Shown here is a 72-nucleotide RNA, a member of the family "narK RNA". It is one of the family's seed sequences. The family's consensus secondary structure is taken from published work. The family's RNA type in Rfam is cis-regulatory element.

RNA sequence: GGCACAGAUCUCGCUAGGUAAUCACCGCAAGGUAACCAACGGCGGUUGCCCCACCUACGACGAAGACGUCGC
Numbered sequence: 001g002g003c004a005c006a007g008a009u010c011u012c013g014c015u016a017g018g019u020a021a022u023c024a025c026c027g028c029a030a031g032g033u034a035a036c037c038a039a040c041g042g043c044g045g046u047u048g049c050c051c052c053a054c055c056u057a058c059g060a061c062g063a064a065g066a067c068g069u070c071g072c
Base pairs, nucleotide, nucleotide: 031050032049033048034047035046036045037044